[Rfam]
Rfam assigns this 81-nucleotide RNA from Cloacibacillus porcorum to the family "ZMP/ZTP riboswitch aptamer (pfl RNA motif)".
The base pairs follow the family's consensus structure, which is taken from published work.
The match comes from Rfam's covariance-model search (48 bits).
The source organism's lineage runs through Bacteria, Synergistota, Synergistales, Synergistaceae and Cloacibacillus.

RNA sequence: CGUCCGUGGUCCCUGACGGAUAAUUGUGGAGCACCACAGUGGGAUCACGGUGAUAUAGAGCCGACCGUCUGGGCAGCAUUC
Numbered sequence: 001c002g003u004c005c006g007u008g009g010u011c012c013c014u015g016a017c018g019g020a021u022a023a024u025u026g027u028g029g030a031g032c033a034c035c036a037c038a039g040u041g042g043g044a045u046c047a048c049g050g051u052g053a054u055a056u057a058g059a060g061c062c063g064a065c066c067g068u069c070u071g072g073g074c075a076g077c078a079u080u081c
Stems, first nucleotide, its partner, number of pairs: 004050010015069005026037004060074003